[Rfam]
RNA sequence: GUCCGUUCAUUCCGCAAGGAACGCAUGACGGUCUACCAUGGAACGGGGGUAGACU
Number, nucleotide and partner (000 for none) at each position: 001g000002u000003c000004c045005g044006u043007u042008c041009a000010u021011u020012c019013c018014g000015c000016a000017a000018g013019g012020a011021a010022c000023g000024c000025a000026u000027g000028a000029c000030g055031g054032u053033c052034u051035a050036c048037c047038a000039u000040g000041g008042a007043a006044c005045g004046g000047g037048g036049g000050u035051a034052g033053a032054c031055u030
RNA: Glutamine-II riboswitch aptamer